[Rfam]
RNA sequence: UCUUAAGGAUCAAAGGCUAAAUAAGCGACAUCCUGCCGCAACGCCUUUGUGACCCACAUCGUGUGGG
Numbered sequence: 001u002c003u004u005a006a007g008g009a010u011c012a013a014a015g016g017c018u019a020a021a022u023a024a025g026c027g028a029c030a031u032c033c034u035g036c037c038g039c040a041a042c043g044c045c046u047u048u049g050u051g052a053c054c055c056a057c058a059u060c061g062u063g064u065g066g067g
Stems, first nucleotide, its partner, number of pairs: 011049007025039003029035001053067005
Rfam assigns this 67-nucleotide RNA sequence from Lederbergia galactosidilytica to the family "Bacillaceae-1 RNA". A search with the family's covariance model found it, with a score of 72 bits. The organism belongs to Lederbergia, within Bacteria.